[Rfam]
RNA sequence: UAAUACAAUCGUUAGGUGAGGCUCCUAUACAGAUACACGCUGCUGCCCGGAAACAUCGAGAGAUGCUAACGGGUCAACAAGUAUUACCGAAUUAAGGUUUUACUUAAUGCAGCUGGAGGAUGCUCCAAAGCUGUAUAGUGCCAAAGCUCAACGAAUUGAAAUG
Numbered sequence: 001u002a003a004u005a006c007a008a009u010c011g012u013u014a015g016g017u018g019a020g021g022c023u024c025c026u027a028u029a030c031a032g033a034u035a036c037a038c039g040c041u042g043c044u045g046c047c048c049g050g051a052a053a054c055a056u057c058g059a060g061a062g063a064u065g066c067u068a069a070c071g072g073g074u075c076a077a078c079a080a081g082u083a084u085u086a087c088c089g090a091a092u093u094a095a096g097g098u099u100u101u102a103c104u105u106a107a108u109g110c111a112g113c114u115g116g117a118g119g120a121u122g123c124u125c126c127a128a129a130g131c132u133g134u135a136u137a138g139u140g141c142c143a144a145a146g147c148u149c150a151a152c153g154a155a156u157u158g159a160a161a162u163g
Stems, first nucleotide, its partner, number of pairs: 005162001009158001011152002013095001015148003020142003025138008039113005045074005054065004080104004086098003115126003
The record is a 163-nucleotide RNA from Thermoanaerobacter brockii, which matches "M-box riboswitch aptamer (ykoK leader)" in Rfam. Lineage of the source: Bacteria > Bacillati > Clostridia > Thermoanaerobacter > Thermoanaerobacter brockii. M-box riboswitch, also know as ykoK leader is described as a metaloregulatory RNA that sense divalent metals and function as a genetic control element of genes related to divalent metal transport in bacteria. It was first reported upstream of the B.subtilis ykoK gene and genes with related functions in other bacteria. The pairing is the family consensus, mapped onto this sequence.